[Rfam]
RNA sequence: GUUGCAUGUUUGAGGCCAUAGCAGGAGUGUUCAUGGUGUGGCCCUGUCAGACUUCAAUGAACCUGCAAAUUCUGUU
Dot-bracket structure: ...........[.[[[[..((((((((((.......)))]]]]]...(((..((....))..)))....)))))))
Numbered sequence: 001g002u003u004g005c006a007u008g009u010u011u012g013a014g015g016c017c018a019u020a021g022c023a024g025g026a027g028u029g030u031u032c033a034u035g036g037u038g039u040g041g042c043c044c045u046g047u048c049a050g051a052c053u054u055c056a057a058u059g060a061a062c063c064u065g066c067a068a069a070u071u072c073u074g075u076u
Stems, first nucleotide, its partner, number of pairs: 012044001014043004020076007027039003048065003053060002

The record is a 76-nucleotide RNA sequence from Alligator mississippiensis, which matches "Mammalian CPEB3 ribozyme" in Rfam. The mammalian CPEB3 ribozyme is a self cleaving RNA located in the second intron of the CPEB3 gene which belongs to a family of genes regulating messenger RNA polyadenylation. The source organism's lineage runs through Eukaryota, Euteleostomi, Sauria, Crocodylia and Alligator. The family's consensus secondary structure is taken from published work.